[Rfam]
RNA sequence: GCGAGAAGGGCGUUUGGUGGAUGCCUAGGCAGUAAGAGGCGAUGAAGGACGUGGUACCCUGCGUUAAGCCAUGGGGAGCCGGGAACAGGCUUUGAUCCAUGGAUAUCCGAAUGGGGAAACCCACCUGACAGUUUGUUGUAAUUAUCUCUGAUAGCUUACAAUGGGCUGAAACAGGUACUAAUUACCUGAAUACAUAGGGUUUUUAGAGCGAACCCGGGGAACUGAAACAUCUAAGUACCCGGAGGAAAGGACAUCAACAGAGACUCCGUUAGUAGUGGCGAGCGAACGCGGAUCAGCCGAUGCAUGAAGUGUGACAAGAAUGGUCUGGAAAGGCCAACCAUAGUGGGUGACAGUCCCGUAUUGGAAGCACCAUUGCACAUAUUAAGUAGGGCGGGACACGUGAAAUCCUGUCUGAAGAUCGGAGGACCACCUCCGAAGGCUAAGUACUCCUUACUGACCGAUAGCGAACCAGUACCGUGAGGGAAAGGUGAAAAGCACCCCGACGAGGGGAGUGAAACAGUACCUGAAACCGGACGCCUACAAG
Numbered sequence: 001g002c003g004a005g006a007a008g009g010g011c012g013u014u015u016g017g018u019g020g021a022u023g024c025c026u027a028g029g030c031a032g033u034a035a036g037a038g039g040c041g042a043u044g045a046a047g048g049a050c051g052u053g054g055u056a057c058c059c060u061g062c063g064u065u066a067a068g069c070c071a072u073g074g075g076g077a078g079c080c081g082g083g084a085a086c087a088g089g090c091u092u093u094g095a096u097c098c099a100u101g102g103a104u105a106u107c108c109g110a111a112u113g114g115g116g117a118a119a120c121c122c123a124c125c126u127g128a129c130a131g132u133u134u135g136u137u138g139u140a141a142u143u144a145u146c147u148c149u150g151a152u153a154g155c156u157u158a159c160a161a162u163g164g165g166c167u168g169a170a171a172c173a174g175g176u177a178c179u180a181a182u183u184a185c186c187u188g189a190a191u192a193c194a195u196a197g198g199g200u201u202u203u204u205a206g207a208g209c210g211a212a213c214c215c216g217g218g219g220a221a222c223u224g225a226a227a228c229a230u231c232u233a234a235g236u237a238c239c240c241g242g243a244g245g246a247a248a249g250g251a252c253a254u255c256a257a258c259a260g261a262g263a264c265u266c267c268g269u270u271a272g273u274a275g276u277g278g279c280g281a282g283c284g285a286a287c288g289c290g291g292a293u294c295a296g297c298c299g300a301u302g303c304a305u306g307a308a309g310u311g312u313g314a315c316a317a318g319a320a321u322g323g324u325c326u327g328g329a330a331a332g333g334c335c336a337a338c339c340a341u342a343g344u345g346g347g348u349g350a351c352a353g354u355c356c357c358g359u360a361u362u363g364g365a366a367g368c369a370c371c372a373u374u375g376c377a378c379a380u381a382u383u384a385a386g387u388a389g390g391g392c393g394g395g396a397c398a399c400g401u402g403a404a405a406u407c408c409u410g411u412c413u414g415a416a417g418a419u420c421g422g423a424g425g426a427c428c429a430c431c432u433c434c435g436a437a438g439g440c441u442a443a444g445u446a447c448u449c450c451u452u453a454c455u456g457a458c459c460g461a462u463a464g465c466g467a468a469c470c471a472g473u474a475c476c477g478u479g480a481g482g483g484a485a486a487g488g489u490g491a492a493a494a495g496c497a498c499c500c501c502g503a504c505g506a507g508g509g510g511a512g513u514g515a516a517a518c519a520g521u522a523c524c525u526g527a528a529a530c531c532g533g534a535c536g537c538c539u540a541c542a543a544g
Stems, first nucleotide, its partner, number of pairs: 008539010023524001024488002028459002030456007037448002039209002047108003050063003069102007078090003113122003123176005178206004184200004213244001214242005224231002254261002264444001265292005275283002295441004301377004311370003315363003321336005339343001345357003389413008420435005475482002498510004
This 544-nucleotide part of an RNA from Rhodobacter sp. 24-YEA-8 belongs to the Rfam family "Bacterial large subunit ribosomal RNA". The source organism's lineage runs through Bacteria, Pseudomonadati, Alphaproteobacteria, Rhodobacterales and Rhodobacter.